The family of this 94-nucleotide RNA sequence from Synaphobranchus kaupii is "Small nucleolar RNA U83B".
A search with the family's covariance model found it, with a score of 69 bits.
U83B belongs to the C/D family of snoRNAs. U83B like U83A has no documented RNA target and they share the same host gene with the C/D box snoRNA U43 (RPL3). N.B. U83A/B/C have no sequence similarity with the U83 snoRNA that was cloned by Jady and Kiss (2000).
Gene Ontology terms of the family: RNA processing and nucleolus.
On this family, see Jady and Kiss, Nucleic Acids Res 2000: "Characterisation of the U83 and U84 small nucleolar RNAs: two novel 2'-O-ribose methylation guide RNAs that lack complementarities to ribosomal RNAs".
[Rfam]
RNA sequence: CGUGUCGGUGAUGAGACCACGGAACAACCGCGUCAGGCGUGACGCCCGACAUGCAUGAGGAAAUUCUCCAUGCUGCCUUCCUUCUGAGAACACG
Numbered sequence: 001c002g003u004g005u006c007g008g009u010g011a012u013g014a015g016a017c018c019a020c021g022g023a024a025c026a027a028c029c030g031c032g033u034c035a036g037g038c039g040u041g042a043c044g045c046c047c048g049a050c051a052u053g054c055a056u057g058a059g060g061a062a063a064u065u066c067u068c069c070a071u072g073c074u075g076c077c078u079u080c081c082u083u084c085u086g087a088g089a090a091c092a093c094g
Base pairs, nucleotide, nucleotide: 001094002093003092004091005090